[Rfam]
RNA: RT-7 RNA
RNA sequence: GCCAGAGUCCCGCGAAGUCAAGGCUUCGGGGAGCGUGUCUUGUAAAUUCAGUAACCCACUGGCGGUGUAAAAACGGUCGUGGCCGGUAUCCGAAUUCCGGGCCGCGUUGCUGUCAGUAAUGAAAAACCAAUCUGUGGCAGGGUUGCCUCCGAGGCUCCCCUUUCACAUUUAGCAAGUGGUUACUUCUUAU
Numbered sequence: 001g002c003c004a005g006a007g008u009c010c011c012g013c014g015a016a017g018u019c020a021a022g023g024c025u026u027c028g029g030g031g032a033g034c035g036u037g038u039c040u041u042g043u044a045a046a047u048u049c050a051g052u053a054a055c056c057c058a059c060u061g062g063c064g065g066u067g068u069a070a071a072a073a074c075g076g077u078c079g080u081g082g083c084c085g086g087u088a089u090c091c092g093a094a095u096u097c098c099g100g101g102c103c104g105c106g107u108u109g110c111u112g113u114c115a116g117u118a119a120u121g122a123a124a125a126a127c128c129a130a131u132c133u134g135u136g137g138c139a140g141g142g143u144u145g146c147c148u149c150c151g152a153g154g155c156u157c158c159c160c161u162u163u164c165a166c167a168u169u170u171a172g173c174a175a176g177u178g179g180u181u182a183c184u185u186c187u188u189a190u
Stems, first nucleotide, its partner, number of pairs: 001038002008032002010029003014026001016025002050184007058117008078106007085098002133167005139161004146154003
Dot-bracket structure: ((.....(((((.(.((......)))))).))....))...........(((((((.((((((((............(((((((((..........)).)))))))...))))))))...............(((((.((((...(((...)))...)))).)))))..........)))))))......